[Rfam]
RNA: mir-29 microRNA precursor family
Organism: Branchiostoma floridae
RNA sequence: GAAGACUGGUUCCAAGUGGUGGGUAGAUGGCACUGAGAUCUAGCACCAUUUGAAAUCAGUGCUUU
Dot-bracket structure: (((((((((((.((.((((((..((((...........)))).)))))).)).))))))).))))